[Rfam]
RNA sequence: GGUCGGGUAGCGCGUAGUCAUACAAUACCUACUUGUAGGAAAAGCUACGGGCUGUCUCUGAGCAGUGUUGAAGUACCCGAUCACCCUCUC
Numbered sequence: 001g002g003u004c005g006g007g008u009a010g011c012g013c014g015u016a017g018u019c020a021u022a023c024a025a026u027a028c029c030u031a032c033u034u035g036u037a038g039g040a041a042a043a044g045c046u047a048c049g050g051g052c053u054g055u056c057u058c059u060g061a062g063c064a065g066u067g068u069u070g071a072a073g074u075a076c077c078c079g080a081u082c083a084c085c086c087u088c089u090c
Base pairs, nucleotide, nucleotide: 001082002081003080004079005078006077007076008075009074013049014048015047016046018044028039029038030037051066052065053064054063055062
The record is a 90-nucleotide RNA from Gammaproteobacteria bacterium ESL0073, which matches "sRNA-Xcc1" in Rfam. A search with the family's covariance model found it, with a score of 64 bits. Rfam classes the family as a small RNA. The literature on the family includes a 2011 paper in RNA Biol by Chen et al., "sRNA-Xcc1, an integron-encoded transposon- and plasmid-transferred trans-acting sRNA, is under the positive control of the key virulence regulators HrpG and HrpX of Xanthomonas campestris pathovar campestris".